[Rfam]
RNA sequence: ACAAGAACAAUAACAAGCAAUGCACAAGACAAUAAAAAUAAGACGAAUCGACUCACGCACAACAAAAACAAGACGGCGAGAGGCGUAGCUAACUGAUUCUUUUGGAGAGGCGUUGUAUUUGGGGCUUGCCCCGCAACCAGGCCGAGAACAACAAAAACUGCCCUAAGGCAGAGCCUGAACUGGUUGGAUCACACAGAUCAUUACAGCACAGCGAUCAAAGCAAUCCGUUUGCUCUUGGCUCCCGAUUGGGAGGGUCAUGAAGGAAACCUUCAUGACAAGGGCGUUACACAAAAACAAGAAGCCCGAAACCAAAAAUAAAAAUAGAGCAUGCAACUACUUCUUGGGGAGCUUCGGCUCCCCUUGUGGUUUCUGGCGUUUGCCCAAGGCGGCCCGA
Number, nucleotide and partner (000 for none) at each position: 001a000002c000003a000004a000005g000006a000007a000008c000009a000010a000011u000012a000013a000014c000015a000016a000017g000018c000019a000020a000021u000022g000023c000024a000025c000026a000027a000028g000029a000030c000031a000032a000033u000034a000035a000036a000037a000038a000039u000040a000041a000042g000043a000044c000045g000046a000047a000048u000049c085050g084051a000052c082053u081054c080055a000056c000057g000058c000059a000060c000061a000062a000063c000064a000065a000066a000067a000068a000069c000070a000071a000072g000073a000074c000075g000076g000077c000078g000079a000080g054081a053082g052083g000084c050085g049086u000087a000088g000089c000090u000091a000092a000093c000094u000095g000096a000097u000098u000099c000100u220101u219102u218103u217104g216105g000106a000107g000108a000109g000110g000111c000112g000113u000114u213115g212116u211117a000118u000119u000120u000121g000122g000123g000124g000125c000126u000127u000128g000129c000130c000131c000132c000133g000134c186135a185136a184137c183138c182139a181140g180141g000142c000143c000144g000145a000146g000147a000148a000149c000150a000151a000152c000153a000154a000155a000156a000157a000158c171159u170160g169161c168162c167163c000164u000165a000166a000167g162168g161169c160170a159171g158172a000173g000174c000175c000176u000177g000178a000179a000180c140181u139182g138183g137184u136185u135186g134187g000188a000189u000190c000191a000192c000193a000194c000195a000196g000197a000198u000199c000200a000201u000202u000203a000204c000205a000206g000207c000208a000209c000210a000211g116212c115213g114214a000215u000216c104217a103218a102219a101220g100221c000222a000223a000224u000225c000226c000227g000228u000229u000230u000231g000232c000233u000234c000235u000236u000237g000238g000239c252240u251241c250242c249243c000244g000245a000246u000247u000248g000249g242250g241251a240252g239253g000254g000255u000256c000257a000258u000259g000260a000261a000262g000263g000264a000265a000266a000267c000268c000269u000270u000271c000272a376273u375274g374275a000276c372277a371278a000279g304280g303281g302282c301283g000284u000285u000286a000287c000288a000289c000290a000291a000292a000293a000294a000295c000296a000297a000298g000299a000300a000301g282302c281303c280304c279305g000306a000307a000308a000309c000310c000311a000312a000313a000314a000315a000316u000317a000318a000319a000320a000321a000322u000323a000324g369325a368326g367327c366328a000329u000330g000331c000332a000333a000334c000335u000336a000337c000338u000339u000340c000341u000342u000343g360344g359345g358346g357347a356348g355349c354350u000351u000352c000353g000354g349355c348356u347357c346358c345359c344360c343361u000362u000363g000364u000365g000366g327367u326368u325369u324370c000371u277372g276373g000374c274375g273376u272377u000378u000379g000380c000381c000382c000383a000384a000385g000386g000387c000388g000389g000390c000391c000392c000393g000394a000
RNA: Pseudomonas sRNA CrcZ